[Rfam]
RNA sequence: GAAAAGGGUGUCGACCUUUUACGAUGGUCCAUUCAGGUUGGUGGCUGCGUUUGCAGUUCAUAUUUCCUGAGUGCAGAAUCGCCAUCAAGAGAUUCUGUGCACAUAAUUUUUGAAAUAGAGGGAAGCUGCCGUUUAUGUAACGGAAGGGCGCCCCU
Numbered sequence: 001g002a003a004a005a006g007g008g009u010g011u012c013g014a015c016c017u018u019u020u021a022c023g024a025u026g027g028u029c030c031a032u033u034c035a036g037g038u039u040g041g042u043g044g045c046u047g048c049g050u051u052u053g054c055a056g057u058u059c060a061u062a063u064u065u066c067c068u069g070a071g072u073g074c075a076g077a078a079u080c081g082c083c084a085u086c087a088a089g090a091g092a093u094u095c096u097g098u099g100c101a102c103a104u105a106a107u108u109u110u111u112g113a114a115a116u117a118g119a120g121g122g123a124a125g126c127u128g129c130c131g132u133u134u135a136u137g138u139a140a141c142g143g144a145a146g147g148g149c150g151c152c153c154c155u
Stems, first nucleotide, its partner, number of pairs: 008102004013029004030073008040063001074097007120153003125149003132145001134144001136142002

The record is a 155-nucleotide sequence from Blomia tropicalis, which matches "U11 spliceosomal RNA" in Rfam. On this family, see Montzka and Steitz, Proc Natl Acad Sci U S A 1988: "Additional low-abundance human small nuclear ribonucleoproteins: U11, U12, etc". The family's consensus secondary structure is taken from published work. Rfam links the family to the GO terms U11 snRNP, mRNA 5'-splice site recognition and pre-mRNA 5'-splice site binding. Clan: U1 clan. It is annotated as a spliceosomal small nuclear RNA. The match comes from Rfam's covariance-model search (70 bits). Rfam 15.1 lists 2,595 matches to the family in 1,202 species.